[Rfam]
S15-Flavobacteria ribosomal protein leader: a 68-nucleotide RNA sequence. The literature on the family includes a 2020 paper in BMC Microbiol by Eckert and Weinberg, "Discovery of 20 novel ribosomal leader candidates in bacteria and archaea". Pairs were carried over by alignment from the consensus structure, which is taken from published work. By type it is a cis-regulatory leader.
RNA sequence: UAUUUUUGCCGCCUGAUUACCAUAGCGGUAGUCUGUACAUAAAAAUCAUUUAAAUAAAUAUUGGAAUG
Numbered sequence: 001u002a003u004u005u006u007u008g009c010c011g012c013c014u015g016a017u018u019a020c021c022a023u024a025g026c027g028g029u030a031g032u033c034u035g036u037a038c039a040u041a042a043a044a045a046u047c048a049u050u051u052a053a054a055u056a057a058a059u060a061u062u063g064g065a066a067u068g
Stems, first nucleotide, its partner, number of pairs: 015033005